Source information:
This 67-nucleotide RNA sequence from Pipistrellus kuhlii belongs to the Rfam family "mir-9256 microRNA precursor family". The base pairs follow the family's consensus structure, which was predicted with RNAalifold. The organism belongs to Pipistrellus, within Eukaryota. A search with the family's covariance model found it, with a score of 85 bits.
RNA sequence: AAAUAUAUUGAGUGGCCAGAUUAUUAUGUGCUCAGAAAUCAUAAUAAUCUGGCCACUCAGUGUAUAU
Numbered sequence: 001a002a003a004u005a006u007a008u009u010g011a012g013u014g015g016c017c018a019g020a021u022u023a024u025u026a027u028g029u030g031c032u033c034a035g036a037a038a039u040c041a042u043a044a045u046a047a048u049c050u051g052g053c054c055a056c057u058c059a060g061u062g063u064a065u066a067u
Stems, first nucleotide, its partner, number of pairs: 004064014019049010